[Rfam]
RNA sequence: AAGUCCUUUAAGAGUAGUCCUGUGAGGCUAGCAAGGUACGGUUUUAUAGUAGCUUCCACGGGUGGAGUCUAUUUAUUUAGCGCUAUUCUUAGAGUGUAUCUUUAAGAAUAGCGCUUUUUU
Numbered sequence: 001a002a003g004u005c006c007u008u009u010a011a012g013a014g015u016a017g018u019c020c021u022g023u024g025a026g027g028c029u030a031g032c033a034a035g036g037u038a039c040g041g042u043u044u045u046a047u048a049g050u051a052g053c054u055u056c057c058a059c060g061g062g063u064g065g066a067g068u069c070u071a072u073u074u075a076u077u078u079a080g081c082g083c084u085a086u087u088c089u090u091a092g093a094g095u096g097u098a099u100c101u102u103u104a105a106g107a108a109u110a111g112c113g114c115u116u117u118u119u120u
Stems, first nucleotide, its partner, number of pairs: 005036004015030005048073005054067005079115016

This 120-nucleotide RNA sequence from Ligilactobacillus apodemi belongs to the Rfam family "PyrR binding site". The match comes from Rfam's covariance-model search (59 bits). Rfam's curators write: This family represents the PyrR binding site and terminator structure. This RNA structure is found upstream of a variety of genes involved in pyrimidine biosynthesis and transport. The alignment also includes a portion of the antiterminator structure. The family's RNA type in Rfam is cis-regulatory element. NCBI's taxonomy places the organism under Bacteria, Bacillati, Lactobacillales, Lactobacillaceae, Ligilactobacillus apodemi. The literature on the family includes a 2001 paper in Nucleic Acids Res by Bonner et al., "Molecular recognition of pyr mRNA by the Bacillus subtilis attenuation regulatory protein PyrR".